[Rfam]
RNA sequence: GGAAGGGGAACGACACCGGUGUGUCGGCCGGGCUUCAAACCCGGUGGGUGGCGCCAUGCGUCGCUGGGUGGGUUCGACCCCCACCCCCUUCC
Dot-bracket structure: ((((((((..((((((....))))))((((((.......)))))).(((((.........)))))...((((.......)))).))))))))
RNA: Selenocysteine transfer RNA